[Rfam]
Rfam assigns this 56-nucleotide RNA from Toona ciliata to the family "Plastid-psbA-4 3UTR RNA". About the family: Plastid psbA-4 is a non-coding RNA (ncRNA) present in plastids. It was identified in inverted repeat sequences in the 3 prime untranslate region (3UTR) of photosystem II quinone-binding protein (psbA). The sequence is in the family's curated seed alignment. It is annotated as a cis-regulatory element.
RNA sequence: GAAAAUAACGGAGAAAUACCGACUCUCUUGCAAGAGAGUCGGUAUUUCUCCGUUAU
Numbered sequence: 001g002a003a004a005a006u007a008a009c010g011g012a013g014a015a016a017u018a019c020c021g022a023c024u025c026u027c028u029u030g031c032a033a034g035a036g037a038g039u040c041g042g043u044a045u046u047u048c049u050c051c052g053u054u055a056u
Base pairs, nucleotide, nucleotide: 007054008053009052010051011050012049013048014047015046016045017044018043022039023038025036026035027034028033
Dot-bracket structure: ......((((((((((((...((.((((....)))).))...))))))))))))..